[Rfam]
RNA sequence: AGGUGCAAAGAUAAAAACACAACGCAAGGCAAACUUGCAGAACUGGUAGGUAGUCCAGUCGCACCGAUUUGGUGUAAGUAGCCCUCCCUCCUUAGGGUCGUCCGUUCUUUGUUCAUUACAA
Numbered sequence: 001a002g003g004u005g006c007a008a009a010g011a012u013a014a015a016a017a018c019a020c021a022a023c024g025c026a027a028g029g030c031a032a033a034c035u036u037g038c039a040g041a042a043c044u045g046g047u048a049g050g051u052a053g054u055c056c057a058g059u060c061g062c063a064c065c066g067a068u069u070u071g072g073u074g075u076a077a078g079u080a081g082c083c084c085u086c087c088c089u090c091c092u093u094a095g096g097g098u099c100g101u102c103c104g105u106u107c108u109u110u111g112u113u114c115a116u117u118a119c120a121a
Stems, first nucleotide, its partner, number of pairs: 005112007042059005061075006086097003
The record is a 121-nucleotide sequence from Parablautia intestinalis, which matches "azaaromatic riboswitch aptamer (yjdF RNA)" in Rfam. The base pairs follow the family's consensus structure, which is taken from published work. It scores 66 bits against the family's covariance model.